A member of the RNA family "RNase MRP" from Apolygus lucorum, 254 nucleotides long. The family is grouped with related families in Rfam's "RNaseP clan". By type it is a ribozyme. Pairs were carried over by alignment from the consensus structure, which is taken from published work.
Nucleotides: 254
Stems, first nucleotide, its partner, number of pairs: 002254010014217006023064006037051005069240003073237004085097004098117003102113002119184003125180006131173004139167004149160004
Number, partner (000 for none) and nucleotide at each position: 001000g002254u003253g004252g005251c006250g007249g008248g009247a010246g011245g012000a013000g014217g015216u016215u017214g018213u019212u020000g021000u022000g023064c024063a025062a026061g027060g028059c029000u030000a031000c032000a033000c034000g035000c036000g037051g038050a039049g040048c041047a042000c043000c044000u045000g046000u047041u048040g049039c050038u051037c052000a053000c054000u055000u056000u057000u058000c059028g060027c061026c062025u063024u064023g065000g066000g067000g068000a069240a070239g071238u072000u073237c074236c075235u076234c077000g078000g079000a080000c081000c082000u083000c084000u085097g086096g087095c088094a089000g090000a091000g092000a093000c094088u095087g096086c097085u098117g099116u100115g101000a102113u103112g104000u105000u106000a107000u108000u109000a110000u111000u112103c113102a114000c115100c116099g117098c118000c119184c120183c121182g122000g123000c124000c125180g126179c127178u128177a129176g130175g131173u132172g133171u134170c135000a136000g137000g138000a139167g140166g141165g142164g143000c144000g145000g146000g147000a148000c149160c150159u151158g152157c153000g154000u155000u156000a157152g158151u159150g160149g161000g162000g163000a164142u165141c166140c167139u168000a169000c170134g171133g172132c173131a174000c175130c176129u177128u178127g179126g180125c181000u182121c183120g184119g185000g186000u187000g188000c189000c190000c191000u192000g193000g194000u195000c196000a197000a198000a199000g200000c201000a202000c203000a204000g205000u206000u207000c208000c209000u210000a211000u212019g213018a214017c215016a216015g217014c218000u219000u220000c221000a222000u223000a224000u225000c226000a227000a228000c229000u230000c231000a232000a233000c234076g235075g236074g237073g238071g239070c240069u241000a242000c243000u244000c245011c246010c247009u248008c249007u250006c251005g252004u253003c254002a

The family has 66 seed sequences and 3,510 matches in Rfam 15.1. Gene Ontology terms of the family: ribonuclease MRP complex, ribonuclease MRP activity and rRNA processing. Taxonomically the source falls in Apolygus (Eukaryota, Ecdysozoa, Neoheteroptera, Cimicomorpha).